[Rfam]
RNA sequence: UGUCACAAAUUUGAGGUCAUAGCAGAAGCGCUGAUGGUGCAGCCCUGUCAGAUUCCAACAAAUCCAUGAAUUCUGCU
Number, nucleotide and partner (000 for none) at each position: 001u000002g000003u000004c000005a000006c000007a000008a000009a000010u000011u000012u000013g045014a000015g044016g043017u042018c000019a000020u000021a077022g076023c075024a074025g073026a072027a071028g040029c039030g038031c000032u000033g000034a000035u000036g000037g000038u030039g029040c028041a000042g017043c016044c015045c013046u000047g000048u000049c000050a000051g064052a063053u062054u061055c000056c000057a000058a000059c000060a000061a054062a053063u052064c051065c000066a000067u000068g000069a000070a000071u027072u026073c025074u024075g023076c022077u021

Rfam assigns this 77-nucleotide RNA sequence from Crocodylus porosus to the family "Mammalian CPEB3 ribozyme". The family's consensus secondary structure is taken from published work. Lineage of the source: Eukaryota > Deuterostomia > Vertebrata > Tetrapoda > Crocodylus. It scores 36 bits against the family's covariance model.